[Rfam]
The family of this 67-nucleotide RNA from Erwinia sp. 198 is "RybB RNA". It scores 58 bits against the family's covariance model. NCBI's taxonomy places the organism under Bacteria, Pseudomonadati, Pseudomonadota, Gammaproteobacteria, Erwinia. This ncRNA was identified in a large scale screen of E. coli. The function of this short RNA is unknown. The exact 5' and 3' ends of this RNA are uncertain. For this family Rfam cites "Identification of novel small RNAs using comparative genomics and microarrays" (Wassarman et al., Genes Dev, 2001). The family's consensus secondary structure was predicted with PFOLD.
RNA sequence: ACUGCUUUUCUUUGAAAUCCCCCGGAUUGUGGAGCCCGUUAAUCUUAUGAUUGACGGGUUUUUUUCU
Numbered sequence: 001a002c003u004g005c006u007u008u009u010c011u012u013u014g015a016a017a018u019c020c021c022c023c024g025g026a027u028u029g030u031g032g033a034g035c036c037c038g039u040u041a042a043u044c045u046u047a048u049g050a051u052u053g054a055c056g057g058g059u060u061u062u063u064u065u066c067u
Base pairs, nucleotide, nucleotide: 033060034059035058036057037056038055039054040053041052042051043050044049